RNA sequence: CGUUGGCGUGAUGAUCCCUUCCUCGGAAUCAACACAUGUCGAAUAAAUAAAUCAGACUACAAUUAUCUGACCAACG
Numbered sequence: 001c002g003u004u005g006g007c008g009u010g011a012u013g014a015u016c017c018c019u020u021c022c023u024c025g026g027a028a029u030c031a032a033c034a035c036a037u038g039u040c041g042a043a044u045a046a047a048u049a050a051a052u053c054a055g056a057c058u059a060c061a062a063u064u065a066u067c068u069g070a071c072c073a074a075c076g
Stems, first nucleotide, its partner, number of pairs: 001076006

Rfam assigns this 76-nucleotide sequence from Musa troglodytarum to the family "Small nucleolar RNA Z155".
By type it is a C/D-box small nucleolar RNA.
Rfam 15.1 lists 429 matches to the family in 196 species.
Taxonomically the source falls in Musa (Eukaryota, Spermatophyta, Petrosaviidae, Zingiberales).
It scores 52 bits against the family's covariance model.
For this family Rfam cites "The high diversity of snoRNAs in plants: identification and comparative study of 120 snoRNA genes from Oryza sativa" (Chen et al., Nucleic Acids Res, 2003).